[Rfam]
This 87-nucleotide RNA from Paramecium tetraurelia belongs to the Rfam family "Selenocysteine transfer RNA".
Rfam 15.1 lists 4,211 matches to the family in 3,344 species.
Its family is annotated with triplet codon-amino acid adaptor activity in the Gene Ontology.
The organism belongs to Paramecium, within Eukaryota.
The literature on the family includes a 2000 paper in FEBS Lett by Mizutani and Goto, "Eukaryotic selenocysteine tRNA has the 9/4 secondary structure".
The base pairs follow the family's consensus structure, which is taken from published work.

RNA sequence: GCUCUGGUGAGUGGGGCUGGUGCUCCGUCAGGGCUUCAAACCCUGAAGGUGCCGAGAGGCACAGCUGUUCGAUUCGGCCUCUGGAGC
Numbered sequence: 001g002c003u004c005u006g007g008u009g010a011g012u013g014g015g016g017c018u019g020g021u022g023c024u025c026c027g028u029c030a031g032g033g034c035u036u037c038a039a040a041c042c043c044u045g046a047a048g049g050u051g052c053c054g055a056g057a058g059g060c061a062c063a064g065c066u067g068u069u070c071g072a073u074u075c076g077g078c079c080u081c082u083g084g085a086g087c
Stems, first nucleotide, its partner, number of pairs: 001087007009079001012027006028047001029045005049062005064078004